[Rfam]
Shown here is a 69-nucleotide RNA sequence from Aedes aegypti, a member of the family "mir-14 microRNA precursor family". Rfam links the family to the GO terms RISC complex and miRNA-mediated post-transcriptional gene silencing. The sequence is in the family's curated seed alignment.
RNA sequence: UGUGGGAGCGAGAUUAAGGCUUGCUGGUCAUUUAUUACACUCGAAGUCAGUCUUUUUCUCUCUCCUAUU
Numbered sequence: 001u002g003u004g005g006g007a008g009c010g011a012g013a014u015u016a017a018g019g020c021u022u023g024c025u026g027g028u029c030a031u032u033u034a035u036u037a038c039a040c041u042c043g044a045a046g047u048c049a050g051u052c053u054u055u056u057u058c059u060c061u062c063u064c065c066u067a068u069u
Base pairs, nucleotide, nucleotide: 002068003067004066005065006064007063008062010060011059012058013057016054017053018052019051020050021049023047024046025045
The source organism's lineage runs through Eukaryota, Insecta, Eumetabola, Aedes and Stegomyia. The literature on the family includes a 2009 paper in BMC Genomics by Li et al., "Direct sequencing and expression analysis of a large number of miRNAs in Aedes aegypti and a multi-species survey of novel mosquito miRNAs". Pairs were carried over by alignment from the consensus structure, which was predicted with RNAalifold.